Shown here is a 137-nucleotide RNA from Microcaecilia unicolor, a member of the family "U11 spliceosomal RNA".
[Rfam]
RNA sequence: AAAAAGGGCUUCUGCUAUGUAUGGCACAUAGGUUGAUCCAGUUGCUGGGUCUUUCUGUGCGGAAUCGACAUCAAGAGAUUUCGGAAGCACAAUUUUUGCACUUGGGGCUGUUAGUGAUCUUUGGUCCGGGCGCCCCU
Numbered sequence: 001a002a003a004a005a006g007g008g009c010u011u012c013u014g015c016u017a018u019g020u021a022u023g024g025c026a027c028a029u030a031g032g033u034u035g036a037u038c039c040a041g042u043u044g045c046u047g048g049g050u051c052u053u054u055c056u057g058u059g060c061g062g063a064a065u066c067g068a069c070a071u072c073a074a075g076a077g078a079u080u081u082c083g084g085a086a087g088c089a090c091a092a093u094u095u096u097u098g099c100a101c102u103u104g105g106g107g108c109u110g111u112u113a114g115u116g117a118u119c120u121u122u123g124g125u126c127c128g129g130g131c132g133c134c135c136c137u
Stems, first nucleotide, its partner, number of pairs: 008088005013026005027059006035051006060083007105135004110131003114127001116126004
Source information:
The source organism's lineage runs through Eukaryota, Metazoa, Eumetazoa, Sarcopterygii and Microcaecilia. Clan: U1 clan. Rfam classes the family as a spliceosomal small nuclear RNA.